[Rfam]
Nucleotides: 165
Stems, first nucleotide, its partner, number of pairs: 004037001007034004013029007039055005058115006065108007084097004128142004133137001144165009
Number, partner (000 for none) and nucleotide at each position: 001000a002000g003000a004037u005000a006000a007034c008033u009032c010031a011000g012000a013029a014028u015027c016026c017025u018024c019023c020000g021000a022000c023019g024018g025017a026016g027015g028014a029013u030000a031010u032009g033008a034007g035000u036000a037004a038000c039055g040054g041053u042052c043051g044000u045000u046000u047000g048000g049000c050000a051043c052042g053041g054040c055039c056000a057000g058115u059114a060113g061112c062111c063110u064000a065108c066107c067106u068105g069104u070103u071102c072000a073000a074000c075000c076000a077000a078000a079000c080000c081000u082000c083000c084097g085096g086095g087094u088000u089000g090000u091000u092000c093000c094087a095086c096085c097084c098000g099000a100000g101000a102071g103070a104069a105068c106067a107066g108065g109000u110063g111062g112061g113060u114059u115058g116000c117000g118000a119000a120000u121000c122000u123000u124000a125000a126000u127000a128142u129141c130140c131139c132000a133137a134000c135000g136000c137133u138000c139131g140130g141129g142128a143000a144165u145164c146163c147162u148161c149160g150159c151158c152157c153000u154000u155000u156000a157152g158151g159150g160149c161148g162147g163146g164145g165144a
This 165-nucleotide sequence from Halorubrum vacuolatum belongs to the Rfam family "Sense overlapping transcript RNA 0042 (sot)". Rfam's curators write: It is associated with IS1341-type transposase (tnpB) genes, at the 3'-end in H. salinarum NRC-1. The tetraloop structural motif may be functional. Rfam classes the family as a small RNA. Lineage of the source: Archaea > Methanobacteriota > Halobacteriales > Haloferacaceae > Halorubrum. For this family Rfam cites "Sense overlapping transcripts in IS1341-type transposase genes are functional non-coding RNAs in archaea" (Gomes-Filho et al., RNA Biol, 2015).